[Rfam]
RNA sequence: CGUGAAACGUGGGGGGUCAUUGCAUAAGCGUGCUCGUCGCGACCCCUGCCAGCCCUUUUCAGGGCUGCAAUUCUACA
Numbered sequence: 001c002g003u004g005a006a007a008c009g010u011g012g013g014g015g016g017u018c019a020u021u022g023c024a025u026a027a028g029c030g031u032g033c034u035c036g037u038c039g040c041g042a043c044c045c046c047u048g049c050c051a052g053c054c055c056u057u058u059u060c061a062g063g064g065c066u067g068c069a070a071u072u073c074u075a076c077a
Base pairs, nucleotide, nucleotide: 013046014045015044016043017042018041021077022076024074026072027071028040029039030038050067051066052065053064054063055062056061
Mammalian CPEB3 ribozyme: a 77-nucleotide sequence from Parnassius apollo. The organism belongs to Parnassius, within Eukaryota. A search with the family's covariance model found it, with a score of 61 bits. Pairs were carried over by alignment from the consensus structure, which is taken from published work. About the family: The mammalian CPEB3 ribozyme is a self cleaving RNA located in the second intron of the CPEB3 gene which belongs to a family of genes regulating messenger RNA polyadenylation.